RNA sequence: CCUCACCAAAGGCAAACCCGGCGAAAGCCGAGAGCGAAAAGCCAUAUGGCCUAGGACGGUGAUCCGUUACGGCAACCCGGCUACUGGG
Numbered sequence: 001c002c003u004c005a006c007c008a009a010a011g012g013c014a015a016a017c018c019c020g021g022c023g024a025a026a027g028c029c030g031a032g033a034g035c036g037a038a039a040a041g042c043c044a045u046a047u048g049g050c051c052u053a054g055g056a057c058g059g060u061g062a063u064c065c066g067u068u069a070c071g072g073c074a075a076c077c078c079g080g081c082u083a084c085u086g087g088g
Stems, first nucleotide, its partner, number of pairs: 013036001017032001019030004040082004048076001049073003056067004
The record is an 88-nucleotide sequence from Calderihabitans maritimus, which matches "c-di-GMP-I riboswitch aptamer" in Rfam. Taxonomically the source falls in Calderihabitans (Bacteria, Bacillota, Clostridia, Neomoorellales). GEMM was predicted in a large-scale screen for bacterial structured RNA regulatory elements. Genes associated with GEMM are involved in a diverse array of functions, including chemotaxis regulation, signal transduction, secretion and chitin. Its Rfam clan is "c-di-GMP_I riboswitch clan". Gene Ontology term of the family: cyclic-di-GMP binding.